[Rfam]
Shown here is a 325-nucleotide RNA from Phyllostomus discolor, a member of the family "7SK RNA". NCBI's taxonomy places the organism under Eukaryota, Eumetazoa, Vertebrata, Theria, Phyllostomus. From the family's description: 7SK was discovered as an abundant small nuclear RNA in the mid-70s but a possible function has only recently been suggested. Two independent studies have found that 7SK RNA binds the CDK9/cyclin T complex (known as elongation factor P-TEFb). P-TEFb activates transcription by phosphorylating the C-terminal domain of RNA polymerase II. This process is negatively regulated by the 7SK RNP. The secondary structure of 7SK RNA shown here was proposed by Wasserman and Steitz on the basis of chemical modification and enzymatic cleavage experiments. This family contains a number of annotated pseudogenes and 7SK derived repeats. Clan: 7SK clan. It is annotated as a non-coding RNA gene. The family has 45 seed sequences and 49,373 matches in Rfam 15.1.
RNA sequence: AAAUGUGAGGGCGAUCUGGCUGCGAUAUCUGUCACCCCAUUGAUCGCCAGGGUUGAUUUGGCUGAUCUGACUGGCUAGGCAGGUGUCCCCUUCCUCCCUCACUGAUCCGUGUGCAUCCCUCCCAAAGCUGCACACUCAAUUGAGGAGGACGACCUUCCCAACUAGAGGAGAGGACCAGUCAAGGGUAUACCAGUAGCUGCACUCCCCUGCUAGAACCUCCAAAUAAGCUCUCAAGGACCCUCUGUAGGAGAAUGUAGGGUAGUCAAGCUUCCAAGACUCCAGACACAUCCAAACAAGGCACUGCAUGGGCAGCCUGCCUUUCUUA
Numbered sequence: 001a002a003a004u005g006u007g008a009g010g011g012c013g014a015u016c017u018g019g020c021u022g023c024g025a026u027a028u029c030u031g032u033c034a035c036c037c038c039a040u041u042g043a044u045c046g047c048c049a050g051g052g053u054u055g056a057u058u059u060g061g062c063u064g065a066u067c068u069g070a071c072u073g074g075c076u077a078g079g080c081a082g083g084u085g086u087c088c089c090c091u092u093c094c095u096c097c098c099u100c101a102c103u104g105a106u107c108c109g110u111g112u113g114c115a116u117c118c119c120u121c122c123c124a125a126a127g128c129u130g131c132a133c134a135c136u137c138a139a140u141u142g143a144g145g146a147g148g149a150c151g152a153c154c155u156u157c158c159c160a161a162c163u164a165g166a167g168g169a170g171a172g173g174a175c176c177a178g179u180c181a182a183g184g185g186u187a188u189a190c191c192a193g194u195a196g197c198u199g200c201a202c203u204c205c206c207c208u209g210c211u212a213g214a215a216c217c218u219c220c221a222a223a224u225a226a227g228c229u230c231u232c233a234a235g236g237a238c239c240c241u242c243u244g245u246a247g248g249a250g251a252a253u254g255u256a257g258g259g260u261a262g263u264c265a266a267g268c269u270u271c272c273a274a275g276a277c278u279c280c281a282g283a284c285a286c287a288u289c290c291a292a293a294c295a296a297g298g299c300a301c302u303g304c305a306u307g308g309g310c311a312g313c314c315u316g317c318c319u320u321u322c323u324u325a
Base pairs, nucleotide, nucleotide: 003106005102006101007100008099009098010097011096013093014092018090019089024087025086026085027084028083029082030081031080032079033078035074036073038069039068042067043066044065045064046062047061048060116171117170118168119167120166121165125136127135141161147158148157149156196268197267198266202262203261205259206258207257208256209255210254217250218249219248220247223245224244225243227241292324293323295320296319297318298317299316301312302311303310304309